RNA: Molybdenum/Tungsten riboswitch aptamer (Moco RNA motif)
Organism: Cloacibacillus sp. An23
RNA sequence: ACGUUGUUGCAACCCCGAGCCCCGCCGCCUAAAGCGAAAGCCACGGAGGCCGGGCCAGCGGGCGAGAGUCCGCGAGGGCGCGCGCGAAAGCGCCGCGCCUCCCGGGACGCCUGAGGGCGUCCAAAUUGGAAAGGGGUACAGGUCAUCAGGCG
Numbered sequence: 001a002c003g004u005u006g007u008u009g010c011a012a013c014c015c016c017g018a019g020c021c022c023c024g025c026c027g028c029c030u031a032a033a034g035c036g037a038a039a040g041c042c043a044c045g046g047a048g049g050c051c052g053g054g055c056c057a058g059c060g061g062g063c064g065a066g067a068g069u070c071c072g073c074g075a076g077g078g079c080g081c082g083c084g085c086g087a088a089a090g091c092g093c094c095g096c097g098c099c100u101c102c103c104g105g106g107a108c109g110c111c112u113g114a115g116g117g118c119g120u121c122c123a124a125a126u127u128g129g130a131a132a133g134g135g136g137u138a139c140a141g142g143u144c145a146u147c148a149g150g151c152g
Stems, first nucleotide, its partner, number of pairs: 003146002006143001012137005019055004024050003028046002034041002058073005076100006082093004101129002